[Rfam]
RNA sequence: UUUGUACAUCAAGAGUGAGAUUAAGUUCUCCUCCAACCUGCCACUCCGGCAAGGUGGAAAAAAGAUGUGGUUAACCAACAAUUAAAGGAGUUAAA
Number, nucleotide and partner (000 for none) at each position: 001u000002u000003u000004g000005u000006a068007c067008a066009u065010c064011a000012a000013g000014a000015g031016u000017g030018a029019g028020a027021u000022u000023a000024a000025g000026u000027u020028c019029u018030c017031c015032u058033c057034c056035a000036a000037c054038c053039u052040g050041c049042c048043a000044c000045u090046c000047c088048g042049g041050c040051a000052a039053g038054g037055u000056g034057g033058a032059a000060a000061a000062a000063a000064g010065a009066u008067g007068u006069g000070g079071u078072u077073a000074a000075c000076c000077a072078a071079c070080a000081a000082u000083u000084a000085a000086a000087g000088g047089a000090g045091u000092u000093a000094a000095a000
This 95-nucleotide RNA belongs to the Rfam family "SAM-I/IV (S-adenosyl methionine) riboswitch aptamer". The literature on the family includes a 2008 paper in RNA by Weinberg et al., "The aptamer core of SAM-IV riboswitches mimics the ligand-binding site of SAM-I riboswitches".